[Rfam]
RNA sequence: AUUUAAAGCGAAUAUUAUUUUCAUAUAAUCGCGGGGAUAUGGCCUGCAAGUUUCUACCGGUUUACCGUAAAUAAACUGACUAUGAAAAGUAGCACAAAAAGG
Numbered sequence: 001a002u003u004u005a006a007a008g009c010g011a012a013u014a015u016u017a018u019u020u021u022c023a024u025a026u027a028a029u030c031g032c033g034g035g036g037a038u039a040u041g042g043c044c045u046g047c048a049a050g051u052u053u054c055u056a057c058c059g060g061u062u063u064a065c066c067g068u069a070a071a072u073a074a075a076c077u078g079a080c081u082a083u084g085a086a087a088a089g090u091a092g093c094a095c096a097a098a099a100a101g102g
Stems, first nucleotide, its partner, number of pairs: 018088008029049001031047005058078007
The record is a 102-nucleotide RNA from Oceanobacillus indicireducens, which matches "Purine riboswitch aptamer" in Rfam. Gene Ontology term of the family: purine nucleobase biosynthetic process. Rfam describes the family as follows. Riboswitches are metabolite binding domains within certain messenger RNAs that serve as precision sensors for their corresponding targets. NCBI's taxonomy places the organism under Bacteria, Bacillati, Bacillota, Bacillaceae, Oceanobacillus. The match comes from Rfam's covariance-model search (88 bits).